Rfam assigns this 156-nucleotide sequence from Populus deltoides to the family "MIR2912 microRNA precursor family". Rfam links the family to the GO terms RISC complex and miRNA-mediated post-transcriptional gene silencing. The base pairs follow the family's consensus structure, which was predicted with RNAalifold. It scores 126 bits against the family's covariance model.
RNA sequence: UUUAGAACUCGAGAUAUGGGCUAAAUACUGAACAGUAUCUGGGUUGCAGGACAGAUUCGGACUUCUACGUUGUUGCUACAAUUUGGACUUGAAAACGGCCUUUUUAAAUCUUUAGCUCCAUAUGAAAGUUGUAGACCUAUGUCUUAUCUUUCCAUC
Numbered sequence: 001u002u003u004a005g006a007a008c009u010c011g012a013g014a015u016a017u018g019g020g021c022u023a024a025a026u027a028c029u030g031a032a033c034a035g036u037a038u039c040u041g042g043g044u045u046g047c048a049g050g051a052c053a054g055a056u057u058c059g060g061a062c063u064u065c066u067a068c069g070u071u072g073u074u075g076c077u078a079c080a081a082u083u084u085g086g087a088c089u090u091g092a093a094a095a096c097g098g099c100c101u102u103u104u105u106a107a108a109u110c111u112u113u114a115g116c117u118c119c120a121u122a123u124g125a126a127a128g129u130u131g132u133a134g135a136c137c138u139a140u141g142u143c144u145u146a147u148c149u150u151u152c153c154a155u156c
Stems, first nucleotide, its partner, number of pairs: 003154001005152003009146001011145010021134003025130001027129003035123003041119003045115001048112004054105002059100002062098002072088003